The family of this 307-nucleotide RNA from Rosa chinensis is "Plant signal recognition particle RNA". Its Rfam clan is "SRP clan". Pairs were carried over by alignment from the consensus structure, which is taken from published work. The family's RNA type in Rfam is non-coding RNA gene.
RNA sequence: GCCGAGCUUGGUCACGCCAGCUUAUGACCCUAGUGGGGGCACGAGGGUGCUGGAACUUUGGUUCAGCAUUAGCUGGUUGGGUUCGGAAUGGCUAUAUUCUGACUCGCCCGUUCCAAGCAAGGAGUUGGGCUAUGUGGCUUGGGCGAAGGCUCUGGGCUUCAUGGUUCCUAGAGAGGAGGGCAAUGCGUGAGGCUGGUUUCACAGAGCAGCGAUCACCUACCUCUCUUUGCAGUGGAAGGAUAACGGGUCGGUGCCUUCUGGUUCCCACCAUGACCCGCUAGGCUGUUCCAUUCGAACCAACACUUUU
Numbered sequence: 001g002c003c004g005a006g007c008u009u010g011g012u013c014a015c016g017c018c019a020g021c022u023u024a025u026g027a028c029c030c031u032a033g034u035g036g037g038g039g040c041a042c043g044a045g046g047g048u049g050c051u052g053g054a055a056c057u058u059u060g061g062u063u064c065a066g067c068a069u070u071a072g073c074u075g076g077u078u079g080g081g082u083u084c085g086g087a088a089u090g091g092c093u094a095u096a097u098u099c100u101g102a103c104u105c106g107c108c109c110g111u112u113c114c115a116a117g118c119a120a121g122g123a124g125u126u127g128g129g130c131u132a133u134g135u136g137g138c139u140u141g142g143g144c145g146a147a148g149g150c151u152c153u154g155g156g157c158u159u160c161a162u163g164g165u166u167c168c169u170a171g172a173g174a175g176g177a178g179g180g181c182a183a184u185g186c187g188u189g190a191g192g193c194u195g196g197u198u199u200c201a202c203a204g205a206g207c208a209g210c211g212a213u214c215a216c217c218u219a220c221c222u223c224u225c226u227u228u229g230c231a232g233u234g235g236a237a238g239g240a241u242a243a244c245g246g247g248u249c250g251g252u253g254c255c256u257u258c259u260g261g262u263u264c265c266c267a268c269c270a271u272g273a274c275c276c277g278c279u280a281g282g283c284u285g286u287u288c289c290a291u292u293c294g295a296a297c298c299a300a301c302a303c304u305u306u307u
Stems, first nucleotide, its partner, number of pairs: 001040003004023005010017001028037003043307007051299003056294001059290002064285004069281005075275004079265003083261004090255002093253002099251008108239002111237005117230008127167008136158006142151003168173001175220001177218003186211003193204003
Dot-bracket structure: ((((((((.(......).)))))....(((....))))))..(((((((.(((..(..((...((((.(((((.(((((((.((((...((.((....((((((((.((.(((((.((((((((..((((((((.(((((((((....))).)))))).))))))))(....).(.(((......(((....(((......)))....)))....))).)..))))))))..)))))))....))))))))))))..)))).)))......)))).)))))))))...))...)..))).)))))))